A member of the RNA family "Archaeal large subunit ribosomal RNA" from Halorubrum lacusprofundi, 451 nucleotides of a longer RNA. NCBI's taxonomy places the organism under Archaea, Methanobacteriati, Methanobacteriota, Halobacteria, Halorubrum lacusprofundi. Clan: LSU clan.
RNA sequence: CCAACCGAAACAUGUCGAAGCAUGACCUCUUCCGAGGUAGCCCGCGGGGUAGAGCUACCGAUUGGAUGACCCGCCUCCGAGAGGAGUCGGCCAUCCUGUCGAACUCCAAACCCGCAGGCGCUGUAGACGAAGGGAGUCCGGUGCGCGGGGUAAGCCUGUGUACCGUGAGGGGAACAACCCAGAGCCGGGUUAAGGUCCCAAAGUGUAGAUUAAGUGCGAUUCGAAGGUGGUCUCAAGCCCUAAACAGCCGGGAGGUGAGCUUAGAAGCAGCUACCCUCUAAGAAAAGCGUAACAGCUUACCGGCCGAGGUUUGAGGCGCCCAAAAUGAUCGGGGCUCAAAUCUACCACCGAGACCUGGCCGUGCCCUUGACAGGGGCAACCGCGUAGGUUGGCGUUCUGUUCGGAUGGAAGCACGGGUGAGAACUCGUGUGGACCGUUCAGAAACGACAAU
Number, nucleotide and partner (000 for none) at each position: 001c392002c391003a390004a389005c388006c387007g000008a000009a000010a000011c024012a023013u022014g021015u020016c000017g000018a000019a000020g015021c014022a013023u012024g011025a000026c136027c134028u133029c132030u131031u130032c129033c000034g000035a000036g122037g121038u120039a000040g119041c118042c117043c000044g115045c114046g113047g112048g000049g000050u000051a000052g107053a105054g104055c000056u000057a000058c000059c000060g100061a099062u098063u000064g096065g095066a094067u093068g092069a000070c000071c000072c000073g088074c000075c086076u085077c084078c083079g000080a000081g000082a000083g078084g077085a076086g075087u000088c073089g000090g000091c000092c068093a067094u066095c065096c064097u000098g062099u061100c060101g000102a000103a000104c054105u053106c000107c052108a000109a000110a000111c000112c047113c046114g045115c044116a000117g042118g041119c040120g038121c037122u036123g000124u000125a000126g000127a000128c000129g032130a031131a030132g029133g028134g027135a000136g026137u000138c000139c000140g164141g163142u162143g161144c160145g159146c158147g157148g156149g000150g000151u000152a000153a000154g000155c000156c148157u147158g146159u145160g144161u143162a142163c141164c140165g000166u000167g000168a000169g180170g179171g178172g000173a000174a000175c000176a000177a000178c171179c170180c169181a000182g000183a000184g359185c358186c357187g356188g355189g354190u353191u000192a000193a000194g349195g348196u347197c000198c000199c000200a000201a000202a000203g346204u000205g345206u344207a343208g342209a341210u340211u000212a000213a000214g000215u000216g000217c000218g000219a000220u000221u000222c000223g000224a000225a000226g320227g319228u318229g000230g317231u316232c315233u314234c313235a312236a311237g310238c309239c308240c000241u000242a000243a000244a000245c000246a000247g304248c303249c302250g301251g300252g000253a277254g276255g275256u000257g000258a272259g271260c270261u000262u000263a000264g000265a000266a000267g000268c000269a000270g260271c259272u258273a000274c000275c255276c254277u253278c282279u000280a000281a000282g278283a298284a000285a000286a000287g296288c295289g000290u000291a000292a000293c000294a000295g288296c287297u000298u283299a000300c251301c250302g249303g248304c247305c000306g000307a000308g239309g238310u237311u236312u235313g234314a233315g232316g231317c230318g228319c227320c226321c000322a000323a000324a000325a000326u000327g000328a000329u000330c000331g000332g000333g000334g000335c000336u000337c000338a000339a000340a210341u209342c208343u207344a206345c205346c203347a196348c195349c194350g000351a000352g000353a190354c189355c188356u187357g186358g185359c184360c382361g381362u378363g377364c376365c375366c374367u000368u000369g000370a000371c000372a000373g000374g366375g365376g364377c363378a362379a000380c000381c361382g360383c000384g000385u000386a000387g006388g005389u004390u003391g002392g001393c446394g000395u443396u442397c441398u440399g439400u000401u000402c436403g435404g434405a000406u000407g000408g000409a000410a000411g430412c429413a428414c427415g426416g425417g424418u423419g000420a000421g000422a000423a418424c417425u416426c415427g414428u413429g412430u411431g000432g000433a000434c404435c403436g402437u000438u000439c399440a398441g397442a396443a395444a000445c000446g393447a000448c000449a000450a000451u000